[Rfam]
RNA sequence: ACAUGACCGAAGCCAAAACUUCCCUUGUUCGGGAAGUGCGGGGGACUUUUUUUGCUCGCAGAUCGACAUCUGCGAUUGGGGUGAAUCGCCAGCGUGCGAAGGGUUGACUCCUCAACCCGAAUCCGACAACUAACCUCGUAGGCAGUAAAGGGGGAACAU
Number, nucleotide and partner (000 for none) at each position: 001a000002c000003a000004u000005g000006a000007c000008c000009g000010a000011a000012g143013c142014c141015a000016a000017a000018a037019c036020u035021u034022c033023c032024c031025u000026u000027g000028u000029u000030c000031g024032g023033g022034a021035a020036g019037u018038g139039c138040g137041g136042g135043g134044g000045a000046c000047u000048u078049u000050u000051u000052u000053u000054g000055c000056u000057c000058g000059c000060a000061g000062a000063u000064c000065g000066a000067c000068a000069u000070c000071u000072g000073c000074g000075a000076u000077u000078g048079g124080g123081g122082u000083g000084a000085a000086u000087c098088g097089c096090c000091a000092g000093c000094g000095u000096g089097c088098g087099a000100a000101g118102g117103g116104u115105u000106g000107a000108c000109u000110c000111c000112u000113c000114a000115a104116c103117c102118c101119g000120a000121a000122u081123c080124c079125g000126a000127c000128a000129a000130c000131u000132a000133a000134c043135c042136u041137c040138g039139u038140a000141g014142g013143c012144a000145g000146u000147a000148a000149a000150g000151g000152g000153g000154g000155a000156a000157c000158a000159u000

A member of the RNA family "c-di-AMP riboswitch aptamer (ydaO/yuaA leader)" from Brevibacillus fulvus, 159 nucleotides long. The match comes from Rfam's covariance-model search (74 bits).